[Rfam]
RNA sequence: CAUCAUCCAAUAGGAAUUGAACCUACAAAUCCUCCAAUUAUGAGUUGGGCGCUUUAACCAUUUAGCCAUGGAU
Numbered sequence: 001c002a003u004c005a006u007c008c009a010a011u012a013g014g015a016a017u018u019g020a021a022c023c024u025a026c027a028a029a030u031c032c033u034c035c036a037a038u039u040a041u042g043a044g045u046u047g048g049g050c051g052c053u054u055u056a057a058c059c060a061u062u063u064a065g066c067c068a069u070g071g072a073u
Base pairs, nucleotide, nucleotide: 005073006072007071008070011025012024013023014022040069041068042067044066045065046064047063048062049061051059
RNA: Plastid-ycf2 5UTR RNA
Organism: Gossypium anomalum